[Rfam]
RNA: TPP riboswitch aptamer (THI element)
RNA sequence: AGAAAUAACUAGGGGUGUCCAAUCAGUUGGGCUGAGAGAGAAACACGUUGAAGUUUCUUGACCCUCGGGACCUGAUCUGGUUCAUACCAGCGUGGGGAAGUUAGAACAAUCAUCA
Numbered sequence: 001a002g003a004a005a006u007a008a009c010u011a012g013g014g015g016u017g018u019c020c021a022a023u024c025a026g027u028u029g030g031g032c033u034g035a036g037a038g039a040g041a042a043a044c045a046c047g048u049u050g051a052a053g054u055u056u057c058u059u060g061a062c063c064c065u066c067g068g069g070a071c072c073u074g075a076u077c078u079g080g081u082u083c084a085u086a087c088c089a090g091c092g093u094g095g096g097g098a099a100g101u102u103a104g105a106a107c108a109a110u111c112a113u114c115a
Base pairs, nucleotide, nucleotide: 006103007102008101009100010099011065012064013063014062017032018031019030020029021028039058040057041056042055043054071096072095073094074093077090078089079088080087